This 33-nucleotide sequence from Levilactobacillus parabrevis belongs to the Rfam family "L31-Firmicutes ribosomal protein leader". Rfam classes the family as a cis-regulatory leader. Taxonomically the source falls in Levilactobacillus parabrevis (Bacteria, Bacillati, Bacillota, Lactobacillaceae).
RNA sequence: CUCUGGCUCAGUAGAUGAACCAGGGCAAAGGAG
Numbered sequence: 001c002u003c004u005g006g007c008u009c010a011g012u013a014g015a016u017g018a019a020c021c022a023g024g025g026c027a028a029a030g031g032a033g
Base pairs, nucleotide, nucleotide: 001025002024003023004022005021008018009017010016